[Rfam]
RNA sequence: UUACGUCUUCAGGGCGGGGUGAAAGUCCCCACCGGCGGUAUGUGGCAGCAGUCGCAAGACAGCGCUGCCGCGAGCCCGCGAGCGCCCGCAUUCCCGUGCGGGGUCAGCAGACCUGGUGAGAGGCCAGGGCCGACGGUCAUAGUCCGGAUGAAAGAAGAUGGGC
Numbered sequence: 001u002u003a004c005g006u007c008u009u010c011a012g013g014g015c016g017g018g019g020u021g022a023a024a025g026u027c028c029c030c031a032c033c034g035g036c037g038g039u040a041u042g043u044g045g046c047a048g049c050a051g052u053c054g055c056a057a058g059a060c061a062g063c064g065c066u067g068c069c070g071c072g073a074g075c076c077c078g079c080g081a082g083c084g085c086c087c088g089c090a091u092u093c094c095c096g097u098g099c100g101g102g103g104u105c106a107g108c109a110g111a112c113c114u115g116g117u118g119a120g121a122g123g124c125c126a127g128g129g130c131c132g133a134c135g136g137u138c139a140u141a142g143u144c145c146g147g148a149u150g151a152a153a154g155a156a157g158a159u160g161g162g163c
Stems, first nucleotide, its partner, number of pairs: 004160007017029003031143002033132002035079004074130002082108002112128005134146003